This 151-nucleotide RNA sequence from Staphylococcus aureus belongs to the Rfam family "Small pathogenicity island RNA X". On this family, see Kathirvel et al., Med Microbiol Immunol 2016: "Enhancement of the pathogenicity of Staphylococcus aureus strain Newman by a small noncoding RNA SprX1". By type it is a small RNA. The sequence is in the family's curated seed alignment. Rfam describes the family as follows. SprX was shown to influence antibiotic resistance of the bacteria to Vancomycin and Teicoplanin glycopeptides, which are used to treat MRSA infections. In this study the authors identified a SprX target, stage V sporulation protein G (Spo VG). By reducing Spo VG expression levels, SprX affects S. aureus resistance to the glycopeptide antibiotics. It is involved in regulation of pathogenicity factors.
[Rfam]
RNA sequence: ACACAUGCAUCAACUAUUUACAUCUAUCCUUGUUCACCCAAGCAUGUCACUGGGUGUUUUUUCUUAUGAUAGAGAGCAUAGUUUUCAUACUACUCCCUCGUAGUAUAUAUGACUUUAGCAUUCCCGUAUAAUAGUUUACGGGGUGCUUUUU
Numbered sequence: 001a002c003a004c005a006u007g008c009a010u011c012a013a014c015u016a017u018u019u020a021c022a023u024c025u026a027u028c029c030u031u032g033u034u035c036a037c038c039c040a041a042g043c044a045u046g047u048c049a050c051u052g053g054g055u056g057u058u059u060u061u062u063c064u065u066a067u068g069a070u071a072g073a074g075a076g077c078a079u080a081g082u083u084u085u086c087a088u089a090c091u092a093c094u095c096c097c098u099c100g101u102a103g104u105a106u107a108u109a110u111g112a113c114u115u116u117a118g119c120a121u122u123c124c125c126g127u128a129u130a131a132u133a134g135u136u137u138a139c140g141g142g143g144u145g146c147u148u149u150u151u
Base pairs, nucleotide, nucleotide: 003033004032005031007029009023010022012019013018035056036055037054038053039052040051057081058080060078061076062075063074064073065072087106088105089104090103091102092101093100117147118146119145120144121143123142124141125140126139127138128137